[Rfam]
Nucleotides: 152
Base pairs, nucleotide, nucleotide: 001058002057003056005055006054007053009052013048014047015046016045017044018043019042020041021040022039023038027034028033059077061075062074064072065071078116079115080114081113082112085110087108088107089106090105091104093102120144121143122142
Number, partner (000 for none) and nucleotide at each position: 001058g002057g003056g004000u005055g006054c007053u008000c009052u010000g011000g012000a013048u014047c015046u016045u017044u018043g019042u020041a021040u022039c023038u024000g025000g026000a027034g028033c029000c030000u031000g032000a033028g034027c035000a036000a037000a038023a039022g040021g041020u042019a043018c044017a045016a046015a047014g048013a049000g050000a051000a052009a053007a054006g055005c056003c057002c058001c059077g060000a061075g062074u063000c064072g065071a066000u067000a068000a069000u070000a071065u072064c073000a074062a075061c076000c077059c078116g079115a080114g081113g082112c083000c084000a085110a086000c087108u088107c089106u090105a091104a092000c093102g094000c095000u096000c097000g098000a099000c100000a101000a102093c103000a104091u105090u106089a107088g108087g109000u110085u111000a112082g113081c114080u115079u116078c117000u118000u119000a120144c121143u122142c123000g124000c125000c126000g127000c128000g129000a130000g131000g132000c133000a134000a135000g136000g137000a138000u139000a140000a141000g142122g143121a144120g145000g146000c147000a148000u149000g150000a151000u152000g
Description
Shown here is a 152-nucleotide RNA from Serratia fonticola, a member of the family "sok antitoxin (CssrC)". For this family Rfam cites "An integrated approach for finding overlooked genes in Shigella" (Peng et al., PLoS One, 2011). Pairs were carried over by alignment from the consensus structure, which is taken from published work. NCBI's taxonomy places the organism under Bacteria, Pseudomonadati, Pseudomonadota, Gammaproteobacteria, Serratia. A search with the family's covariance model found it, with a score of 90 bits. Rfam classes the family as an antitoxin RNA. Its family is annotated with mRNA binding in the Gene Ontology. From the family's description: Also identified in Shigella as CssrC. Rfam 15.1 lists 305 matches to the family in 167 species.